[Rfam]
RNA sequence: AGCUUUUACGAGGUAUCAGCACUUUUCUUUCAUUAGGGGGAAGGCGUGAGGAAAGUACCAAACAGCAGCAGAGUUUUAAACUUUAAAUAGACAGGUCUGAGCGCCUGAACUUGCCUUUUCAUUUUACUUCAUCCUCCAAGGAGUUCAAUCACUUGGCGUGACUUCACUUCUUUUAAGCGAAAGAGUAAGUUUUUU
Numbered sequence: 001a002g003c004u005u006u007u008a009c010g011a012g013g014u015a016u017c018a019g020c021a022c023u024u025u026u027c028u029u030u031c032a033u034u035a036g037g038g039g040g041a042a043g044g045c046g047u048g049a050g051g052a053a054a055g056u057a058c059c060a061a062a063c064a065g066c067a068g069c070a071g072a073g074u075u076u077u078a079a080a081c082u083u084u085a086a087a088u089a090g091a092c093a094g095g096u097c098u099g100a101g102c103g104c105c106u107g108a109a110c111u112u113g114c115c116u117u118u119u120c121a122u123u124u125u126a127c128u129u130c131a132u133c134c135u136c137c138a139a140g141g142a143g144u145u146c147a148a149u150c151a152c153u154u155g156g157c158g159u160g161a162c163u164u165c166a167c168u169u170c171u172u173u174u175a176a177g178c179g180a181a182a183g184a185g186u187a188a189g190u191u192u193u194u195u
Stems, first nucleotide, its partner, number of pairs: 002020003007015003029143003033139002036136004040130004048123002051120001053119003070098003074094002099114001101112001103110001155191003159187001162183003165179001167177003

A member of the RNA family "Connexin-43 internal ribosome entry site (IRES)" from Otolemur garnettii, 195 nucleotides long. Rfam's curators write: This family represents the connexin-43 internal ribosome entry site (IRES) which allows cap independent translation during conditions such as heat shock and stress. A reference for the family is Schiavi et al. (1999), "Connexin43 mRNA contains a functional internal ribosome entry site", FEBS Lett. It scores 191 bits against the family's covariance model. The source organism's lineage runs through Eukaryota, Opisthokonta, Metazoa, Bilateria and Otolemur.